A member of the RNA family "SAM riboswitch aptamer (S box leader)" from Bacillus anthracis, 106 nucleotides long. For this family Rfam cites "The S box regulon: a new global transcription termination control system for methionine and cysteine biosynthesis genes in gram-positive bacteria" (Grundy and Henkin, Mol Microbiol, 1998).
RNA sequence: UUCUUAUAAAGAGAGGCGGAGGGACUGGCCCUACGAUGCCUCGGCAGCGGACUCGAUUUUAGAGUGCUGUGCCAAAUCCAGCAAGCAUGUGCUUGAAAGAUGAGAA
Number, nucleotide and partner (000 for none) at each position: 001u106002u105003c104004u103005u102006a101007u100008a000009a000010a000011g000012a000013g042014a041015g040016g039017c038018g000019g000020a000021g031022g030023g029024a000025c081026u080027g079028g078029c023030c022031c021032u000033a000034c000035g000036a000037u000038g017039c016040c015041u014042c013043g073044g072045c071046a070047g000048c069049g068050g000051a065052c064053u063054c062055g000056a000057u000058u000059u000060u000061a000062g054063a053064g052065u051066g000067c000068u049069g048070u046071g045072c044073c043074a000075a000076a000077u098078c028079c027080a026081g025082c095083a094084a093085g092086c000087a000088u000089g000090u000091g000092c085093u084094u083095g082096a000097a000098a077099g000100a007101u006102g005103a004104g003105a002106a001
Gene Ontology term of the family: regulation of gene expression. Taxonomically the source falls in Bacillus anthracis (Bacteria, Bacillota, Caryophanales, Bacillaceae). Rfam's curators put it in the seed alignment.